[Rfam]
RNA sequence: GUGCGGUGACAAAAACUUUAGUUUUUGAACAUUGGCUUUGCCAACGGUGGCGAAGCCAUAGUAAUCGUUAAGAACGAUUACGUAUAAUUUUUUUAUAGU
Numbered sequence: 001g002u003g004c005g006g007u008g009a010c011a012a013a014a015a016c017u018u019u020a021g022u023u024u025u026u027g028a029a030c031a032u033u034g035g036c037u038u039u040g041c042c043a044a045c046g047g048u049g050g051c052g053a054a055g056c057c058a059u060a061g062u063a064a065u066c067g068u069u070a071a072g073a074a075c076g077a078u079u080a081c082g083u084a085u086a087a088u089u090u091u092u093u094u095a096u097a098g099u
Base pairs, nucleotide, nucleotide: 010027011026012025013024014023015022016021030046032044033043034042035041036040047059048058049057050056051055061081062080063079064078065077066076067075068074069073084096085095086094087093